[Rfam]
RNA sequence: AGAGUAAGCUUAUAGUACCCUCCGAUUGCUUAACCAGACCGCCCUAAUUAAGUGGCGGUUU
Numbered sequence: 001a002g003a004g005u006a007a008g009c010u011u012a013u014a015g016u017a018c019c020c021u022c023c024g025a026u027u028g029c030u031u032a033a034c035c036a037g038a039c040c041g042c043c044c045u046a047a048u049u050a051a052g053u054g055g056c057g058g059u060u061u
Stems, first nucleotide, its partner, number of pairs: 001010002036061008
The family of this 61-nucleotide RNA from Nostocales cyanobacterium HT-58-2 is "Nitrogen stress-induced RNA 4". The family's RNA type in Rfam is small RNA. It scores 45 bits against the family's covariance model. Its family is annotated with posttranscriptional regulation of gene expression in the Gene Ontology. Rfam's curators write: Former name SyR12, is a cyanobacterial non-coding RNA which plays role in the regulation of Glutamine synthetase (GS), a key enzyme in biological nitrogen assimilation.